Shown here is a 123-nucleotide sequence from Morus notabilis, a member of the family "mir-166 microRNA precursor family". This family represents the plant microRNA (miRNA) precursor mir-166. Lineage of the source: Eukaryota > Viridiplantae > Embryophyta > eudicotyledons > Morus. The literature on the family includes a 2001 paper in Cell by Ambros, "microRNAs: tiny regulators with great potential".

RNA sequence: GUUGAGGGGAAUGUUGGCUGGCUCGAGGCUUUCUCCGAGAGAAGUUCUCUCAACUUAAUAUAUAAGCCAAGAACAAAAGCAAAUCCCUAACAAAGCUUCGGACCAGGCUUCAUUCCCCUCAAA
Numbered sequence: 001g002u003u004g005a006g007g008g009g010a011a012u013g014u015u016g017g018c019u020g021g022c023u024c025g026a027g028g029c030u031u032u033c034u035c036c037g038a039g040a041g042a043a044g045u046u047c048u049c050u051c052a053a054c055u056u057a058a059u060a061u062a063u064a065a066g067c068c069a070a071g072a073a074c075a076a077a078a079g080c081a082a083a084u085c086c087c088u089a090a091c092a093a094a095g096c097u098u099c100g101g102a103c104c105a106g107g108c109u110u111c112a113u114u115c116c117c118c119u120c121a122a123a
Base pairs, nucleotide, nucleotide: 002122003121004120005119006118007117008116009115010114011113012112013111016108018106019105020104021103024100025099026098027097028096029095030094031093032092